[Rfam]
RNA sequence: GUGGCAAGGGGGGCUCUGUAGGUCCCUACAUUUAUUGCCACUCUUUUAACUUUGUCAACUGAGUUGAUUCACUUGCAGUUGAUUUUCGUGGGUGGUAGAUGG
Numbered sequence: 001g002u003g004g005c006a007a008g009g010g011g012g013g014c015u016c017u018g019u020a021g022g023u024c025c026c027u028a029c030a031u032u033u034a035u036u037g038c039c040a041c042u043c044u045u046u047u048a049a050c051u052u053u054g055u056c057a058a059c060u061g062a063g064u065u066g067a068u069u070c071a072c073u074u075g076c077a078g079u080u081g082a083u084u085u086u087c088g089u090g091g092g093u094g095g096u097a098g099a100u101g102g
Base pairs, nucleotide, nucleotide: 037096038095039094040093041092042091054083055082056081057080058079059078060077061076
Annotation: A member of the RNA family "Small nucleolar RNA snoR99" from Coffea canephora, 102 nucleotides long. A reference for the family is Marker et al. (2002), "Experimental RNomics: identification of 140 candidates for small non-messenger RNAs in the plant Arabidopsis thaliana", Curr Biol. It is annotated as an H/ACA-box small nucleolar RNA. The base pairs follow the family's consensus structure, which was predicted with WAR. NCBI's taxonomy places the organism under Eukaryota, Streptophytina, Ixoroideae, Coffeeae, Coffea. The match comes from Rfam's covariance-model search (43 bits).